[Rfam]
RNA: L17-Actino-Proteobacteria ribosomal protein leader
RNA sequence: CGGGAGCCCUAGCGCCCCCGGCCUGACCCCGGUACCUCAUACGGCCGGGGCAG
Numbered sequence: 001c002g003g004g005a006g007c008c009c010u011a012g013c014g015c016c017c018c019c020g021g022c023c024u025g026a027c028c029c030c031g032g033u034a035c036c037u038c039a040u041a042c043g044g045c046c047g048g049g050g051c052a053g
Stems, first nucleotide, its partner, number of pairs: 001020004006015002023053003027050007